[Rfam]
RNA sequence: GGUUUUUCUCCCCAGACCUGUUGGUGUAAAUUACAGAGAAGCUUUCAGGCUCUGGGGGAAGAGCC
Dot-bracket structure: ((((....(((.((((..((..(((((.....))......)))..))...)))).)))...))))

This 65-nucleotide RNA sequence from Pelusios castaneus belongs to the Rfam family "MAT2A 3'UTR stem loop A". The literature on the family includes a 2011 paper in Genome Res by Parker et al., "New families of human regulatory RNA structures identified by comparative analysis of vertebrate genomes". The family's RNA type in Rfam is cis-regulatory element. The source organism's lineage runs through Eukaryota, Metazoa, Sarcopterygii, Pleurodira and Pelusios.